RNA sequence: UGCGUAGGGCGUGUUUCAUGACGAUGUUGCCGAAACUCACGCCCUUGAGGCGCGCGGUGCGGAUGUAUUGCGCGGUCAUGACCUCGGCCAUCGAGGCGCGGGUCAUCCUUGCAAUGUAGCCCAUCCCGUAAAGCGCGAUGGUCAGCACCGGCAGAAAGAAGUUCUCGAAGUUCGGGUUU
Numbered sequence: 001u002g003c004g005u006a007g008g009g010c011g012u013g014u015u016u017c018a019u020g021a022c023g024a025u026g027u028u029g030c031c032g033a034a035a036c037u038c039a040c041g042c043c044c045u046u047g048a049g050g051c052g053c054g055c056g057g058u059g060c061g062g063a064u065g066u067a068u069u070g071c072g073c074g075g076u077c078a079u080g081a082c083c084u085c086g087g088c089c090a091u092c093g094a095g096g097c098g099c100g101g102g103u104c105a106u107c108c109u110u111g112c113a114a115u116g117u118a119g120c121c122c123a124u125c126c127c128g129u130a131a132a133g134c135g136c137g138a139u140g141g142u143c144a145g146c147a148c149c150g151g152c153a154g155a156a157a158g159a160a161g162u163u164c165u166c167g168a169a170g171u172u173c174g175g176g177u178u179u
Stems, first nucleotide, its partner, number of pairs: 005140002009136004014131002016128001020125002028123002040111002046105003051100004055075001057073006082096005145179001147177001148175004154165001156163002
RNA: Ruegeria cis52 sRNA
Organism: Antarctobacter albus